[Rfam]
RNA sequence: AUGAGUGCCUGUCCACCCCAUUUCUUUCGUGUUGCGCGGGUUCCGCAGCCGGCCUGGUCCGGAGCGGCGGACAUCAGGCGCAACGCGACGACCGCAGUCGAGCCGCUCGCCCCGUCAGCCGGGGCAGCGGCUUUUUUG
Numbered sequence: 001a002u003g004a005g006u007g008c009c010u011g012u013c014c015a016c017c018c019c020a021u022u023u024c025u026u027u028c029g030u031g032u033u034g035c036g037c038g039g040g041u042u043c044c045g046c047a048g049c050c051g052g053c054c055u056g057g058u059c060c061g062g063a064g065c066g067g068c069g070g071a072c073a074u075c076a077g078g079c080g081c082a083a084c085g086c087g088a089c090g091a092c093c094g095c096a097g098u099c100g101a102g103c104c105g106c107u108c109g110c111c112c113c114g115u116c117a118g119c120c121g122g123g124g125c126a127g128c129g130g131c132u133u134u135u136u137u138g
Stems, first nucleotide, its partner, number of pairs: 007037002009034001011032002014029001038086001040084003044080003089100004101132006109125005